L31-Actinobacteria ribosomal protein leader: a 52-nucleotide sequence from Nocardia mangyaensis. Clan: Ribosomal Protein L31 Leader clan. Lineage of the source: Bacteria > Bacillati > Actinomycetota > Mycobacteriales > Nocardia. The family's consensus secondary structure is taken from published work. Rfam classes the family as a cis-regulatory leader.

[Rfam]
RNA sequence: UCGGUUCCGGUUCACGCAUUCCACGCUCGCGCGCGGAUGCGACCCGGCGACC
Numbered sequence: 001u002c003g004g005u006u007c008c009g010g011u012u013c014a015c016g017c018a019u020u021c022c023a024c025g026c027u028c029g030c031g032c033g034c035g036g037a038u039g040c041g042a043c044c045c046g047g048c049g050a051c052c
Base pairs, nucleotide, nucleotide: 003052004051005050007047008046009045010044015041016040017039018038019037021036022035